[Rfam]
RNA sequence: AGCGGCAUGGAUGCCGCUGGUUAUAUCAGAAGCGAUGUUUCGACUUUGUCGAAACUCGCUGCCAAAAGCAUACAAGGAAGUAUGCUUUUGGCAAUGC
Numbered sequence: 001a002g003c004g005g006c007a008u009g010g011a012u013g014c015c016g017c018u019g020g021u022u023a024u025a026u027c028a029g030a031a032g033c034g035a036u037g038u039u040u041c042g043a044c045u046u047u048g049u050c051g052a053a054a055c056u057c058g059c060u061g062c063c064a065a066a067a068g069c070a071u072a073c074a075a076g077g078a079a080g081u082a083u084g085c086u087u088u089u090g091g092c093a094a095u096g097c
Stems, first nucleotide, its partner, number of pairs: 001018006033058003037055008060093014
This 97-nucleotide RNA from Treponema vincentii belongs to the Rfam family "TD-2 RNA". The family's consensus secondary structure is taken from published work. The literature on the family includes a 2007 paper in Nucleic Acids Res by Weinberg et al., "Identification of 22 candidate structured RNAs in bacteria using the CMfinder comparative genomics pipeline".